[Rfam]
RNA: U7 small nuclear RNA
RNA sequence: UGGUACAUUUGCUAUUUUAGUAUUUGUCCAGCAGGUUUCCUCAAGGAGAAAGCCCCC
Numbered sequence: 001u002g003g004u005a006c007a008u009u010u011g012c013u014a015u016u017u018u019a020g021u022a023u024u025u026g027u028c029c030a031g032c033a034g035g036u037u038u039c040c041u042c043a044a045g046g047a048g049a050a051a052g053c054c055c056c057c
Stems, first nucleotide, its partner, number of pairs: 034054005040048003